The family of this 120-nucleotide sequence from Candidatus Jettenia caeni is "c-di-GMP-I-GGC riboswitch aptamer". A search with the family's covariance model found it, with a score of 59 bits. On this family, see Weinberg et al., Proc Natl Acad Sci U S A 2017: "Bioinformatic analysis of riboswitch structures uncovers variant classes with altered ligand specificity".

[Rfam]
RNA sequence: AACGAUAAAGGCAAACCCUGAGUGAUCAGGGGACGCAAAGUAAAGGAUCUUUAAUUAUACCGGUAGAAACGCAUCAUGAUGCGUUUCUCCUAUGAAUUAAAGAUAGCCCUACUACCGAAC
Dot-bracket structure: ..((......((...((((((....))))))..[))..((((..((((((((((((......................................)))))))))).])).))))..))...